Rfam assigns this 89-nucleotide RNA sequence from Solanum tuberosum to the family "Small nucleolar RNA snoR8a".
RNA sequence: UUGUUUGCGAUGAUUAUAAACAAUUCCUCGUUCUGAAUGCUGUUGACAUGGCAUGAUAGACUCUUUUACACCCAUAGAAUAUGAGCAAC
Dot-bracket structure: ..((.((..............................................................................))))
Numbered sequence: 001u002u003g004u005u006u007g008c009g010a011u012g013a014u015u016a017u018a019a020a021c022a023a024u025u026c027c028u029c030g031u032u033c034u035g036a037a038u039g040c041u042g043u044u045g046a047c048a049u050g051g052c053a054u055g056a057u058a059g060a061c062u063c064u065u066u067u068a069c070a071c072c073c074a075u076a077g078a079a080u081a082u083g084a085g086c087a088a089c
Stems, first nucleotide, its partner, number of pairs: 003089002006087002
Source information: A search with the family's covariance model found it, with a score of 93 bits. It is annotated as a C/D-box small nucleolar RNA.